[Rfam]
Nucleotides: 064
Stems, first nucleotide, its partner, number of pairs: 001064001004061003008057002016046002019043004024038001025031002
Number, partner (000 for none) and nucleotide at each position: 001064a002000c003000a004061g005060g006059u007000a008057u009056u010000u011000g012000u013000u014000a015000u016046u017045c018000u019043u020042g021041u022040g023000a024038u025031g026030u027000c028000a029000a030026a031025c032000a033000g034000a035000g036000a037000a038024g039000c040022c041021a042020c043019a044000u045017g046016g047000u048000a049000g050000u051000a052000c053000c054000u055000g056009a057008g058000g059006g060005u061004c062000c063000c064001u

Background:
MAT2A 3'UTR stem loop B: a 64-nucleotide RNA sequence from Rhinolophus ferrumequinum. A search with the family's covariance model found it, with a score of 50 bits. The family's consensus secondary structure is taken from published work. The source organism's lineage runs through Eukaryota, Eumetazoa, Boreoeutheria, Rhinolophoidea and Rhinolophus. For this family Rfam cites "New families of human regulatory RNA structures identified by comparative analysis of vertebrate genomes" (Parker et al., Genome Res, 2011). Rfam classes the family as a cis-regulatory element.